[Rfam]
RNA sequence: GGGCGAUUAGCUCAGCGGGAGAGCAUCCGCCUUACAAGCGGAGGGUCGCUGGUUCAAAUCCAGCAUCGCCCA
Dot-bracket structure: (((((((..((((.......)))).(((((.......))))).....(((((.......)))))))))))).
Numbered sequence: 001g002g003g004c005g006a007u008u009a010g011c012u013c014a015g016c017g018g019g020a021g022a023g024c025a026u027c028c029g030c031c032u033u034a035c036a037a038g039c040g041g042a043g044g045g046u047c048g049c050u051g052g053u054u055c056a057a058a059u060c061c062a063g064c065a066u067c068g069c070c071c072a
Stems, first nucleotide, its partner, number of pairs: 001071007010024004026042005048064005
The record is a 72-nucleotide sequence from Truepera sp., which matches "tRNA" in Rfam. NCBI's taxonomy places the organism under Bacteria, Thermotogati, Trueperales, Trueperaceae, Truepera. It is annotated as a transfer RNA.